SmY spliceosomal RNA: a 79-nucleotide sequence from Steinernema hermaphroditum. On this family, see Deng et al., Genome Res 2006: "Organization of the Caenorhabditis elegans small non-coding transcriptome: genomic features, biogenesis, and expression". The family has 61 seed sequences and 408 matches in Rfam 15.1.
RNA sequence: GAUCACCUUAUAUCAAUACCAGGGCCUUAUACAAGACCCGGUGUACAAUUUUUGGCGACUUGUUCAUUAGAACAAGUUU
Numbered sequence: 001g002a003u004c005a006c007c008u009u010a011u012a013u014c015a016a017u018a019c020c021a022g023g024g025c026c027u028u029a030u031a032c033a034a035g036a037c038c039c040g041g042u043g044u045a046c047a048a049u050u051u052u053u054g055g056c057g058a059c060u061u062g063u064u065c066a067u068u069a070g071a072a073c074a075a076g077u078u079u
Stems, first nucleotide, its partner, number of pairs: 022039003026035003057078009